[Rfam]
Rfam assigns this 97-nucleotide sequence from Ruminococcus sp. CAG:563 to the family "THF (Tetrahydrofolate) riboswitch aptamer". From the family's description: Tetrahydrofolate (THF) riboswitch was first reported for Ames et al. as an RNA motif in 5' untranslated (5'-UTR)regions of folate transport and biosynthesis genes in Firmicutes genomes. The match comes from Rfam's covariance-model search (91 bits).
RNA sequence: UUCAGAGUAGACAGAUGAGCGUUAAGUGCCGACGAAACGGGGAGUUGUUCGUUGGACGAAAAGAUUUCUUGCGGUUCUUCUGUCGCAUCCCGCUGAG
Numbered sequence: 001u002u003c004a005g006a007g008u009a010g011a012c013a014g015a016u017g018a019g020c021g022u023u024a025a026g027u028g029c030c031g032a033c034g035a036a037a038c039g040g041g042g043a044g045u046u047g048u049u050c051g052u053u054g055g056a057c058g059a060a061a062a063g064a065u066u067u068c069u070u071g072c073g074g075u076u077c078u079u080c081u082g083u084c085g086c087a088u089c090c091c092g093c094u095g096a097g
Stems, first nucleotide, its partner, number of pairs: 001097005010084006017077003020073003026057002029055008040090003044086001061070003